[Rfam]
RNA sequence: GACUAAGUGCAUGUGGUGGAUGCCUUGGCGAUCACAGGCGAUGAAGGACGUGCAAGCCUGCGAAAAGCGGGGGGGAGCUGGCAAUGGAGCAUUGAUCCCCCGAUGUCCGAAUGGGGAAACCCACUCCUUCGGGAGUAUCCCAGACUGAAUCCAUAGGUCUGAGGAGGCGAACGCGGUGAACUGAAACAUCUAAGUAGCCGCAGGAACAGAAAUCAACCGAGAUUCCCCAAGUAGUGGCGAGCGAACGGGGAAGAGCCUGCACGACUAAACCAUCGAUUUAGCAGAACGGUCUGGAAAGUCCGGCGAUACAGGGUGAUAGCCCCGUAUGCGAAAAAUCGGUGGCGGGUCUGAGCGUGCGACAAGUAGGGCGGGACACGUGAAAUCCUGUCUGAAGAUGGGGGGACCAUCCUCCAAGGCUAAAUACUCGUGAUCGACCGAUAGUGAACCAGUACCGUGAGGGAAAGGCGAAAAGAACCCCGGGAGGGGAGUGAAAUAGAUCCUGAAACCGCAUGCAUACAAA
Numbered sequence: 001g002a003c004u005a006a007g008u009g010c011a012u013g014u015g016g017u018g019g020a021u022g023c024c025u026u027g028g029c030g031a032u033c034a035c036a037g038g039c040g041a042u043g044a045a046g047g048a049c050g051u052g053c054a055a056g057c058c059u060g061c062g063a064a065a066a067g068c069g070g071g072g073g074g075g076a077g078c079u080g081g082c083a084a085u086g087g088a089g090c091a092u093u094g095a096u097c098c099c100c101c102g103a104u105g106u107c108c109g110a111a112u113g114g115g116g117a118a119a120c121c122c123a124c125u126c127c128u129u130c131g132g133g134a135g136u137a138u139c140c141c142a143g144a145c146u147g148a149a150u151c152c153a154u155a156g157g158u159c160u161g162a163g164g165a166g167g168c169g170a171a172c173g174c175g176g177u178g179a180a181c182u183g184a185a186a187c188a189u190c191u192a193a194g195u196a197g198c199c200g201c202a203g204g205a206a207c208a209g210a211a212a213u214c215a216a217c218c219g220a221g222a223u224u225c226c227c228c229a230a231g232u233a234g235u236g237g238c239g240a241g242c243g244a245a246c247g248g249g250g251a252a253g254a255g256c257c258u259g260c261a262c263g264a265c266u267a268a269a270c271c272a273u274c275g276a277u278u279u280a281g282c283a284g285a286a287c288g289g290u291c292u293g294g295a296a297a298g299u300c301c302g303g304c305g306a307u308a309c310a311g312g313g314u315g316a317u318a319g320c321c322c323c324g325u326a327u328g329c330g331a332a333a334a335a336u337c338g339g340u341g342g343c344g345g346g347u348c349u350g351a352g353c354g355u356g357c358g359a360c361a362a363g364u365a366g367g368g369c370g371g372g373a374c375a376c377g378u379g380a381a382a383u384c385c386u387g388u389c390u391g392a393a394g395a396u397g398g399g400g401g402g403a404c405c406a407u408c409c410u411c412c413a414a415g416g417c418u419a420a421a422u423a424c425u426c427g428u429g430a431u432c433g434a435c436c437g438a439u440a441g442u443g444a445a446c447c448a449g450u451a452c453c454g455u456g457a458g459g460g461a462a463a464g465g466c467g468a469a470a471a472g473a474a475c476c477c478c479g480g481g482a483g484g485g486g487a488g489u490g491a492a493a494u495a496g497a498u499c500c501u502g503a504a505a506c507c508g509c510a511u512g513c514a515u516a517c518a519a520a
Stems, first nucleotide, its partner, number of pairs: 007515010022500001023465002027436002029433007036425002038168002046108003049062003068102007077090003113122003123136005138165003141161006172203001173201005183190002213220002223421001224251005234242002254418004259357005270342010281329003287302003291298001305309001311323003366390008397412005452459002475486004
Rfam assigns this 520-nucleotide part of an RNA from Azoarcus sp. KH32C to the family "Bacterial large subunit ribosomal RNA". The base pairs follow the family's consensus structure, which is taken from published work. Lineage of the source: Bacteria > Pseudomonadota > Betaproteobacteria > Zoogloeaceae > Azoarcus.